[Rfam]
Record summary:
Rfam assigns this 73-nucleotide RNA sequence from Winogradskya consettensis to the family "6C RNA". For this family Rfam cites "Identification of 22 candidate structured RNAs in bacteria using the CMfinder comparative genomics pipeline" (Weinberg et al., Nucleic Acids Res, 2007). It scores 59 bits against the family's covariance model. Taxonomically the source falls in Winogradskya (Bacteria, Bacillati, Actinomycetes, Micromonosporales). The family's consensus secondary structure is taken from published work.
RNA sequence: UCCGAUUCGGCUCGACCCCCCCUGAGCCGAAUCCCAGGACGGCCCCCGUCACCCCCGACGGGGGUCGUUCCAU
Numbered sequence: 001u002c003c004g005a006u007u008c009g010g011c012u013c014g015a016c017c018c019c020c021c022c023u024g025a026g027c028c029g030a031a032u033c034c035c036a037g038g039a040c041g042g043c044c045c046c047c048g049u050c051a052c053c054c055c056c057g058a059c060g061g062g063g064g065u066c067g068u069u070c071c072a073u
Stems, first nucleotide, its partner, number of pairs: 002037001004033010038069013